[Rfam]
RNA sequence: GCUGGGAUCAUAUCAUCCUGUCACCUCAGGGGCUUGGGUGGAGGAGGGCAACUACUGUCCCCAAGUCCUGCCCUUCAUGUGGAGAGCUCACCUACCUUUAGCUUGCAGACUGCAAGGUUAGCAUAGAGUAGUCUGUGCUAACCUGGCAGGCAAAGAUUGAGGAAAGGCUCAGGCUGGCAACAGAGCAGGCAAAACUCAACACUGCAAGCAGAUGGGAGAGAGUGAGCUUGAAUGGAUGGCAGUGACCUCUGGUGGCAUGAAUGUGUUCCACUCCACUUUUU
Dot-bracket structure: ((((((((......)))))....((...)))))..((((((((..(((..(((..(((((..(.((.(((((.(((((.(...((((((((((.(((.(.((((((((.((((.(((((((((((((....))))))))))))).)))).(...).(((((.....(((....(((....)))....)))....)))))..))))))))..).)))))...))))))))).))))).)))))..)).)..)..))))..)..))..))).))))))))...
The family of this 281-nucleotide sequence from Symbiodinium sp. CCMP2592 is "Metazoan signal recognition particle RNA". The family has 91 seed sequences and 383,523 matches in Rfam 15.1. The literature on the family includes a 2009 paper in RNA Biol by Rosenblad et al., "Kinship in the SRP RNA family". From the family's description: The signal recognition particle (SRP) is a universally conserved ribonucleoprotein. It is involved in the co-translational targeting of proteins to membranes. The eukaryotic SRP consists of a 300-nucleotide 7S RNA and six proteins: SRPs 72, 68, 54, 19, 14, and 9. Archaeal SRP consists of a 7S RNA and homologues of the eukaryotic SRP19 and SRP54 proteins. Eukaryotic and archaeal 7S RNAs have very similar secondary structures, as represented by this family. Eight helical elements fold into the Alu and S domains, separated by a long linker region. The Alu domain is thought to mediate the peptide chain elongation retardation function of the SRP. The universally conserved helix which interacts with the SRP54 M domain mediates signal sequence recognition. In eukaryotes and archaea, the SRP19-helix 6 complex is thought to be involved in SRP assembly and stabilises helix 8 for SRP54 binding. The Signal Recognition Particle Database (SRPDB) provides compilations of SRP components, with phylogenetic data and structural illustrations. Many sequences below the threshold for this family are clearly closely related, but are most likely to be SRP RNA derived pseudogenes. The human genome in particular is known to contain a large amount of SRP RNA related sequence, including Alu repeats. While the threshold of this family is set high so as to minimise the number of hits to such regions, it is likely that some remain. A search with the family's covariance model found it, with a score of 128 bits.